[Rfam]
Nucleotides: 079
Stems, first nucleotide, its partner, number of pairs: 002077007012067004018061004025054009
Number, partner (000 for none) and nucleotide at each position: 001000u002077c003076u004075u005074a006073g007072a008071c009000g010000u011000c012067u013066c014065g015064g016000g017000g018061a019060u020059c021058a022000u023000c024000a025054u026053g027052u028051c029050a030049c031048g032047a033046g034000c035000u036000a037000u038000a039000c040000u041000g042000u043000g044000c045000u046033c047032u048031u049030g050029u051028g052027a053026c054025a055000g056000a057000g058021u059020g060019a061018u062000a063000a064015c065014u066013g067012a068000a069000a070000g071008g072007u073006c074005u075004g076003g077002g078000a079000g
Shown here is a 79-nucleotide sequence from Peromyscus maniculatus, a member of the family "mir-542 microRNA precursor family". A reference for the family is Linsen et al. (2010), "Small RNA expression and strain specificity in the rat", BMC Genomics. The source organism's lineage runs through Eukaryota, Bilateria, Chordata, Amniota and Peromyscus maniculatus.